[Rfam]
RNA sequence: CCUUCGGCCCAGUUCCGGACACUCGCAGGUUUUUGCUUCGGUGAUAUUCGAAGAGCCGUUAUCACCGGGUGAAAAUUUGCAAGUGUCCGGUAACUGGA
Numbered sequence: 001c002c003u004u005c006g007g008c009c010c011a012g013u014u015c016c017g018g019a020c021a022c023u024c025g026c027a028g029g030u031u032u033u034u035g036c037u038u039c040g041g042u043g044a045u046a047u048u049c050g051a052a053g054a055g056c057c058g059u060u061a062u063c064a065c066c067g068g069g070u071g072a073a074a075a076u077u078u079g080c081a082a083g084u085g086u087c088c089g090g091u092a093a094c095u096g097g098a
Base pairs, nucleotide, nucleotide: 016089017088018087019086020085021084022083025080026079027078028077029076030075031074032073033072034071035070036069037068039067041065042064043063044062045061046060

Rfam assigns this 98-nucleotide RNA sequence from Caenorhabditis briggsae to the family "mir-36 microRNA precursor family". The base pairs follow the family's consensus structure, which was predicted with WAR. Rfam links the family to the GO terms RISC complex and miRNA-mediated post-transcriptional gene silencing. Taxonomically the source falls in Caenorhabditis (Eukaryota, Nematoda, Rhabditida, Rhabditidae).